[Rfam]
RNA sequence: AUCGUUCAACCUAUAUAAAGUAGGUCGGAAGUAAGCUAACUGCUGAAGGAACGCGCA
Number, nucleotide and partner (000 for none) at each position: 001a000002u000003c053004g052005u051006u050007c049008a000009a025010c024011c023012u022013a021014u000015a000016u000017a000018a000019a000020g000021u013022a012023g011024g010025u009026c000027g000028g054029a000030a000031g000032u000033a000034a044035g043036c042037u000038a000039a000040c000041u000042g036043c035044u034045g000046a000047a000048g000049g007050a006051a005052c004053g003054c028055g000056c000057a000
RNA: Glutamine riboswitch aptamer (glnA leader)